[Rfam]
This 114-nucleotide sequence from Clostridium magnum belongs to the Rfam family "SAM riboswitch aptamer (S box leader)".

RNA sequence: UUCUUAUCAUGAGUGGUGGAGGGACUGGCCCUGUGAAGCCCGACAACCGGCAUUUUCGUUUGAAUGUAUCGGUGUCAAUUCCUGCAGAAUACAAUUUAUUCUGAUAGAUGAGGA
Numbered sequence: 001u002u003c004u005u006a007u008c009a010u011g012a013g014u015g016g017u018g019g020a021g022g023g024a025c026u027g028g029c030c031c032u033g034u035g036a037a038g039c040c041c042g043a044c045a046a047c048c049g050g051c052a053u054u055u056u057c058g059u060u061u062g063a064a065u066g067u068a069u070c071g072g073u074g075u076c077a078a079u080u081c082c083u084g085c086a087g088a089a090u091a092c093a094a095u096u097u098a099u100u101c102u103g104a105u106a107g108a109u110g111a112g113g114a
Stems, first nucleotide, its partner, number of pairs: 001114008013041001015040003021031003025084001027082002042076004047072002050067005080106001085103006
Dot-bracket structure: ((((((((....(.(((...(((.[.[[)))......))))((((.((.(((((........)))))...))))))...(]].]((((((.......))))))..)))))))))